[Rfam]
RNA: Small nucleolar RNA SNORD79
Organism: Merluccius polli
RNA sequence: AACUGCGUGUGAUGACUAUGUUUGAAAAACAUUGGGAAUCUCUCUGAAUAAGAAUGAAAGAUAGCUUUUUACUGAUGCAAUG
Numbered sequence: 001a002a003c004u005g006c007g008u009g010u011g012a013u014g015a016c017u018a019u020g021u022u023u024g025a026a027a028a029a030c031a032u033u034g035g036g037a038a039u040c041u042c043u044c045u046g047a048a049u050a051a052g053a054a055u056g057a058a059a060g061a062u063a064g065c066u067u068u069u070u071a072c073u074g075a076u077g078c079a080a081u082g
Base pairs, nucleotide, nucleotide: 002081004079005078006077007076